[Rfam]
RNA sequence: AGGCUUGGUGCGCCGGGUAAAAUCAACGUCACUUAAAUUGUGGCAGCGUGCAUUGACACGUGGGAUCGUUGAGCCGGGAUGAGCUGAAACC
Numbered sequence: 001a002g003g004c005u006u007g008g009u010g011c012g013c014c015g016g017g018u019a020a021a022a023u024c025a026a027c028g029u030c031a032c033u034u035a036a037a038u039u040g041u042g043g044c045a046g047c048g049u050g051c052a053u054u055g056a057c058a059c060g061u062g063g064g065a066u067c068g069u070u071g072a073g074c075c076g077g078g079a080u081g082a083g084c085u086g087a088a089a090c091c
Stems, first nucleotide, its partner, number of pairs: 002085006011078001013077004023072005028044005047060004